Shown here is a 420-nucleotide RNA from Plectonema radiosum, a member of the family "Bacterial RNase P class A".
Pairs were carried over by alignment from the consensus structure, which is taken from published work.
The family's RNA type in Rfam is ribozyme.

[Rfam]
RNA sequence: AGAGUAGGCGAGGCAGUUGCAGAUUAGUUAAAAAAAACUAAUUUGAGGAAAGUCCGGGCUUCCCAAAGACCAAACUUGCUGGGUAACGCCCAGUGCGUGCGAGCGUGAGGAUAGUGCCACAGAAAAAUACCGCCAAAAUUCACUAAACAGUAAUCAGUAAACAGUAAACAGGAAAUACCUGAUAACUGAUAACUGAUUACUGAUAACUGAAAAUGGUAAGGGUGCAAAGGUGAGGUAAGAGCUCACCAGCAGCAUCGAGAGGUGCUGGCUCGGUAAACCCCGGUUGGAAGCAAGGUGAGAGGAACUACGGUUGGUCUUUUACCAGUUCCGUUUUUGAGAGCCGCUUGAGGCGUUUGGUAACAAACGUCCCAGAUAGAUAACUGCCCUUGAACAGAACCCGGCUUAUGUCCGACUCUCUCC
Numbered sequence: 001a002g003a004g005u006a007g008g009c010g011a012g013g014c015a016g017u018u019g020c021a022g023a024u025u026a027g028u029u030a031a032a033a034a035a036a037a038c039u040a041a042u043u044u045g046a047g048g049a050a051a052g053u054c055c056g057g058g059c060u061u062c063c064c065a066a067a068g069a070c071c072a073a074a075c076u077u078g079c080u081g082g083g084u085a086a087c088g089c090c091c092a093g094u095g096c097g098u099g100c101g102a103g104c105g106u107g108a109g110g111a112u113a114g115u116g117c118c119a120c121a122g123a124a125a126a127a128u129a130c131c132g133c134c135a136a137a138a139u140u141c142a143c144u145a146a147a148c149a150g151u152a153a154u155c156a157g158u159a160a161a162c163a164g165u166a167a168a169c170a171g172g173a174a175a176u177a178c179c180u181g182a183u184a185a186c187u188g189a190u191a192a193c194u195g196a197u198u199a200c201u202g203a204u205a206a207c208u209g210a211a212a213a214u215g216g217u218a219a220g221g222g223u224g225c226a227a228a229g230g231u232g233a234g235g236u237a238a239g240a241g242c243u244c245a246c247c248a249g250c251a252g253c254a255u256c257g258a259g260a261g262g263u264g265c266u267g268g269c270u271c272g273g274u275a276a277a278c279c280c281c282g283g284u285u286g287g288a289a290g291c292a293a294g295g296u297g298a299g300a301g302g303a304a305c306u307a308c309g310g311u312u313g314g315u316c317u318u319u320u321a322c323c324a325g326u327u328c329c330g331u332u333u334u335u336g337a338g339a340g341c342c343g344c345u346u347g348a349g350g351c352g353u354u355u356g357g358u359a360a361c362a363a364a365c366g367u368c369c370c371a372g373a374u375a376g377a378u379a380a381c382u383g384c385c386c387u388u389g390a391a392c393a394g395a396a397c398c399c400g401g402c403u404u405a406u407g408u409c410c411g412a413c414u415c416u417c418u419c420c
Base pairs, nucleotide, nucleotide: 001416002415003414004413005412007410008409011406012385013384014383015382016381017380018379020045021044022043023042024041025040026039027038028037050404051403052402054401055400056399057398058397059290060289061288062287068320069319073285074284075283077282078281079093080092081091082090083089094108095106096105097104098103109280110279114278115277116274117273118272130221131220132217133216134215135214139210140209229247230246231245232244233243234242249269250267251266252265253264254263255262256261294342295341300335301334302333303332304331305330311325312324313323314322315321349368350367351366352365353364354363355362356361